[Rfam]
Overview
The family of this 113-nucleotide RNA from Rhododendron williamsianum is "Small nucleolar RNA Z279/snoR105/snoR108". This family includes the plant snoRNAs known as Z279, snoR105 and snoR108. The family has 20 seed sequences and 906 matches in Rfam 15.1. The literature on the family includes a 2002 paper in Curr Biol by Marker et al., "Experimental RNomics: identification of 140 candidates for small non-messenger RNAs in the plant Arabidopsis thaliana".

RNA sequence: GGGAUGUGAUGAGUGGUCAGCUCUCGCAAUAGUAAAAGAUGCGAGAAGGGUGUCACAGCCCAAGCCUGGUUACGACAACCAUGGGCACUCUCAUCUUGAACCAAUCUGAUCCC
Numbered sequence: 001g002g003g004a005u006g007u008g009a010u011g012a013g014u015g016g017u018c019a020g021c022u023c024u025c026g027c028a029a030u031a032g033u034a035a036a037a038g039a040u041g042c043g044a045g046a047a048g049g050g051u052g053u054c055a056c057a058g059c060c061c062a063a064g065c066c067u068g069g070u071u072a073c074g075a076c077a078a079c080c081a082u083g084g085g086c087a088c089u090c091u092c093a094u095c096u097u098g099a100a101c102c103a104a105u106c107u108g109a110u111c112c113c
Stems, first nucleotide, its partner, number of pairs: 001113004014103004023045005047091008067081004